[Rfam]
Rfam assigns this 125-nucleotide RNA sequence from Hymenochirus boettgeri to the family "Small nucleolar RNA SNORA69".
Gene Ontology terms of the family: nucleolus and RNA processing.
It is annotated as an H/ACA-box small nucleolar RNA.
U69 is a member of the H/ACA class of small nucleolar RNAs (snoRNAs) which act as guides in the the modification of uridines to pseudouridines.
It scores 88 bits against the family's covariance model.
Taxonomically the source falls in Hymenochirus (Eukaryota, Gnathostomata, Tetrapoda, Amphibia).
RNA sequence: AAAGCAGGUUGCAAUUACAGUGCUUCAUUCUGUGGAAGUGCUGUCAUUAUCCUGCUAAGAGUAAAGUGUCACUGUUUGAUCUCACCUUAAUAUAGGAGAAUUCAUUUCAAUGUGACAUAACAGCU
Numbered sequence: 001a002a003a004g005c006a007g008g009u010u011g012c013a014a015u016u017a018c019a020g021u022g023c024u025u026c027a028u029u030c031u032g033u034g035g036a037a038g039u040g041c042u043g044u045c046a047u048u049a050u051c052c053u054g055c056u057a058a059g060a061g062u063a064a065a066g067u068g069u070c071a072c073u074g075u076u077u078g079a080u081c082u083c084a085c086c087u088u089a090a091u092a093u094a095g096g097a098g099a100a101u102u103c104a105u106u107u108c109a110a111u112g113u114g115a116c117a118u119a120a121c122a123g124c125u
Base pairs, nucleotide, nucleotide: 003056004055005054006053007052008051018043019042020041021040022039023038024037025036026035066118067117068116069115070114071113072112077104078103079102082099083098085096086095087094